[Rfam]
RNA sequence: CUGCCACGCCCUCCUUGGGCGUUUCCUCCCUAGACUUGGGCCGUGUCGCAACGCGAUGCGGCUUCUUUUUGAGGAGA
Numbered sequence: 001c002u003g004c005c006a007c008g009c010c011c012u013c014c015u016u017g018g019g020c021g022u023u024u025c026c027u028c029c030c031u032a033g034a035c036u037u038g039g040g041c042c043g044u045g046u047c048g049c050a051a052c053g054c055g056a057u058g059c060g061g062c063u064u065c066u067u068u069u070u071g072a073g074g075a076g077a
Stems, first nucleotide, its partner, number of pairs: 008020004040062009
Dot-bracket structure: .......((((.....))))...................(((((((((.....)))))))))...............
A member of the RNA family "Makes More Granules Regulator RNA (mmgR)" from Oricola cellulosilytica, 77 nucleotides long. Lineage of the source: Bacteria > Pseudomonadati > Hyphomicrobiales > Ahrensiaceae > Oricola. The family has 87 seed sequences and 1,791 matches in Rfam 15.1. Its Rfam clan is "suhB sRNA clan". Rfam links the family to the GO terms protein binding, DNA-templated transcription, termination and response to nitrogen compound. The base pairs follow the family's consensus structure. The literature on the family includes a 2016 paper in FEMS Microbiol Lett by Ceizel Borella et al., "Expression of the Sinorhizobium meliloti small RNA gene mmgR is controlled by the nitrogen source".